[Rfam]
Rfam assigns this 52-nucleotide sequence from Capsicum baccatum to the family "MIR1886 microRNA precursor family". It scores 63 bits against the family's covariance model.
RNA sequence: UGAGAUGAAAUCAGCAUUAGGACAUGCAAUCUAACGUUGAUUUCAUCUCAUG
Numbered sequence: 001u002g003a004g005a006u007g008a009a010a011u012c013a014g015c016a017u018u019a020g021g022a023c024a025u026g027c028a029a030u031c032u033a034a035c036g037u038u039g040a041u042u043u044c045a046u047c048u049c050a051u052g
Stems, first nucleotide, its partner, number of pairs: 001050015017034001018029001020027001